[Rfam]
RNA sequence: AUUUUGUUUUUAAGAAAACGCACACUGUUUAAUAACGUUUUGUACUGGGUGCUAGGUUUUAAAGCUAAAACUUGGUUGUACAAGCGAAACAGUGGAGGCACAAC
Numbered sequence: 001a002u003u004u005u006g007u008u009u010u011u012a013a014g015a016a017a018a019c020g021c022a023c024a025c026u027g028u029u030u031a032a033u034a035a036c037g038u039u040u041u042g043u044a045c046u047g048g049g050u051g052c053u054a055g056g057u058u059u060u061a062a063a064g065c066u067a068a069a070a071c072u073u074g075g076u077u078g079u080a081c082a083a084g085c086g087a088a089a090c091a092g093u094g095g096a097g098g099c100a101c102a103a104c
Stems, first nucleotide, its partner, number of pairs: 023094008039084007051076008
Dot-bracket structure: ......................((((((((........(((((((.....((((((((..........)))))))).)))))))..))))))))..........